A member of the RNA family "Small nucleolar RNA SNORA15" from Calypte anna, 134 nucleotides long.
RNA sequence: GCAUGGCUGAAUUCUGCACUAGCUUUCCUCAGUAGUUGGUGCAGUCAGACACUAUGCCAGAGUAAAUUCCUGUUUCACACUCUGGGGUGCUUUUUCUGUGAGAAUGAGCGUGCCCUUGGAACUGGGAUACAGAA
Numbered sequence: 001g002c003a004u005g006g007c008u009g010a011a012u013u014c015u016g017c018a019c020u021a022g023c024u025u026u027c028c029u030c031a032g033u034a035g036u037u038g039g040u041g042c043a044g045u046c047a048g049a050c051a052c053u054a055u056g057c058c059a060g061a062g063u064a065a066a067u068u069c070c071u072g073u074u075u076c077a078c079a080c081u082c083u084g085g086g087g088u089g090c091u092u093u094u095u096c097u098g099u100g101a102g103a104a105u106g107a108g109c110g111u112g113c114c115c116u117u118g119g120a121a122c123u124g125g126g127a128u129a130c131a132g133a134a
Stems, first nucleotide, its partner, number of pairs: 001057006014044006068127003072122006084114002087111006
Gene Ontology terms of the family: nucleolus and RNA processing. ACA15 is a member of the H/ACA class of snoRNA that guide the sites of modification of uridines to pseudouridines. Lineage of the source: Eukaryota > Sarcopterygii > Archosauria > Neognathae > Calypte. Pairs were carried over by alignment from the consensus structure, which was predicted with RNAfold.